Overview: mir-3085 microRNA precursor family: an 89-nucleotide sequence from Mus musculus. Its family is annotated with miRNA-mediated post-transcriptional gene silencing and RISC complex in the Gene Ontology.
RNA sequence: GUCCCAACUCUGGGAAGGUGCCAUUCCGAGGGCCAAGAGUCUGAAUAUGAGUCACUCUGGCUGCUAUGGCCCCCUCCCAGGGCUUGGGC
Numbered sequence: 001g002u003c004c005c006a007a008c009u010c011u012g013g014g015a016a017g018g019u020g021c022c023a024u025u026c027c028g029a030g031g032g033c034c035a036a037g038a039g040u041c042u043g044a045a046u047a048u049g050a051g052u053c054a055c056u057c058u059g060g061c062u063g064c065u066a067u068g069g070c071c072c073c074c075u076c077c078c079a080g081g082g083c084u085u086g087g088g089c
Stems, first nucleotide, its partner, number of pairs: 003088005008082008017073002020070005031062005037057004041051002
Dot-bracket structure: ..(((((((((((((.((.(((((......(((((.((((((.......))..)))))))))...))))).)).)))))))).))))).